[Rfam]
RNA sequence: GGCCAGGGGAAUUCCUGGCAGAGUGAUUUUUUGAGACUACAGGACUGAAUCACAUUGCCAGGGAUUUCCAAUGGCU
Numbered sequence: 001g002g003c004c005a006g007g008g009g010a011a012u013u014c015c016u017g018g019c020a021g022a023g024u025g026a027u028u029u030u031u032u033g034a035g036a037c038u039a040c041a042g043g044a045c046u047g048a049a050u051c052a053c054a055u056u057g058c059c060a061g062g063g064a065u066u067u068c069c070a071a072u073g074g075c076u
Stems, first nucleotide, its partner, number of pairs: 001076001003074003009069001011065011023053007
The family of this 76-nucleotide RNA sequence from Austrofundulus limnaeus is "mir-23 microRNA precursor family". The match comes from Rfam's covariance-model search (55 bits). Its family is annotated with gene silencing by miRNA and RISC complex in the Gene Ontology. Lineage of the source: Eukaryota > Craniata > Gnathostomata > Neopterygii > Austrofundulus. The literature on the family includes a 2005 paper in Genes Dev by Chen et al., "The developmental miRNA profiles of zebrafish as determined by small RNA cloning". The family has 83 seed sequences and 1,403 matches in Rfam 15.1.